[Rfam]
RNA sequence: CUGCAUCCACUGAUAGACCUUGAACAGUCUGCUGUUGUUCUUUCGGUUUGCACUAGGAUGCCAAAGCAAGCUCCCUGCGCUUUCUGUCUGCCUUCGUGGCAGCCCAGAUUGAAUAGGGGAAGACAUCC
Numbered sequence: 001c002u003g004c005a006u007c008c009a010c011u012g013a014u015a016g017a018c019c020u021u022g023a024a025c026a027g028u029c030u031g032c033u034g035u036u037g038u039u040c041u042u043u044c045g046g047u048u049u050g051c052a053c054u055a056g057g058a059u060g061c062c063a064a065a066g067c068a069a070g071c072u073c074c075c076u077g078c079g080c081u082u083u084c085u086g087u088c089u090g091c092c093u094u095c096g097u098g099g100c101a102g103c104c105c106a107g108a109u110u111g112a113a114u115a116g117g118g119g120a121a122g123a124c125a126u127c128c
Stems, first nucleotide, its partner, number of pairs: 003061006011052002014050006022040007072120005080111001083108004088102005
Shown here is a 128-nucleotide sequence from Sus scrofa, a member of the family "Small nucleolar RNA SNORA31".
It scores 130 bits against the family's covariance model.
The family's consensus secondary structure was predicted with RNAalifold.
Rfam classes the family as an H/ACA-box small nucleolar RNA.
Rfam's curators write: ACA31 (SNORA31) belongs to the H/ACA class of snoRNAs which are thought to guide the sites of modification of uridines to pseudouridines. ACA31 is predicted to guide the pseudouridylation of U3713 in 28S rRNA and U218 in 18S rRNA. This family includes the mouse homologue snoMBI-161.
NCBI's taxonomy places the organism under Eukaryota, Chordata, Vertebrata, Artiodactyla, Sus.